[Rfam]
RNA sequence: GGUACCUUUAAUUCAGUCCCGUGAGGCUGACAAGGUGAGCGGAUGUAAAUAGGGAUUGUACUGUCCUUAUUUGCUAGUGUGUGAAAAAACGCUUCUUGUCUCUACGGCAAGGCGUUUUUUUUAU
Dot-bracket structure: ..((((((....((((((......)))))).)))))).......((((((((((((......))))))))))))..........((((((((((..((((.....)))))))))))))).....
PyrR binding site: a 124-nucleotide sequence from Aquibacillus salsiterrae. The base pairs follow the family's consensus structure, which is taken from published work. From the family's description: This family represents the PyrR binding site and terminator structure.